[Rfam]
The family of this 145-nucleotide RNA from Pseudorhizobium banfieldiae is "Alphaproteobacterial sRNA ar7".
A reference for the family is del Val et al. (2012), "A survey of sRNA families in alpha-proteobacteria", RNA Biol.
Pairs were carried over by alignment from the consensus structure.
RNA sequence: UACCGGCGACUGAUCACGCCGCAGUCCGGCAGCUGGCUCGUCCCCCGCCGCGCCGGACCGGACAAAGGCCUCACCCCCUCUCCGGGCCUUUGUCCUCCUGUUGAAACCGCCAUGGCCGUUCCCCUCCCGGCCGUGGCGGUUUUCU
Numbered sequence: 001u002a003c004c005g006g007c008g009a010c011u012g013a014u015c016a017c018g019c020c021g022c023a024g025u026c027c028g029g030c031a032g033c034u035g036g037c038u039c040g041u042c043c044c045c046c047g048c049c050g051c052g053c054c055g056g057a058c059c060g061g062a063c064a065a066a067g068g069c070c071u072c073a074c075c076c077c078c079u080c081u082c083c084g085g086g087c088c089u090u091u092g093u094c095c096u097c098c099u100g101u102u103g104a105a106a107c108c109g110c111c112a113u114g115g116c117c118g119u120u121c122c123c124c125u126c127c128c129g130g131c132c133g134u135g136g137c138g139g140u141u142u143u144c145u
Base pairs, nucleotide, nucleotide: 025057026056027055028054029053030052035049036048037047060095061094062093063092064091065090066089067088068087069086070085104141107139108138109137110136111135112134113133114132115131116130117129118128